Rfam assigns this 49-nucleotide RNA sequence from Agarivorans albus to the family "Guanidine-II riboswitch aptamer (mini-ykkC)". The match comes from Rfam's covariance-model search (34 bits).

RNA sequence: GGCUAGGGACGACCCUAAACACGCCUUGUUAUUAGCCGGGACGACCCGC
Number, nucleotide and partner (000 for none) at each position: 001g020002g000003c000004u017005a016006g015007g014008g013009a000010c000011g000012a000013c008014c007015c006016u005017a004018a000019a000020c001021a000022c000023g000024c000025c000026u000027u000028g000029u000030u000031a000032u000033u000034a000035g000036c000037c048038g047039g046040g045041a000042c000043g000044a000045c040046c039047c038048g037049c000
The source organism's lineage runs through Bacteria, Gammaproteobacteria, Alteromonadales, Agarivorans and Agarivorans albus.
The base pairs follow the family's consensus structure, which is taken from published work.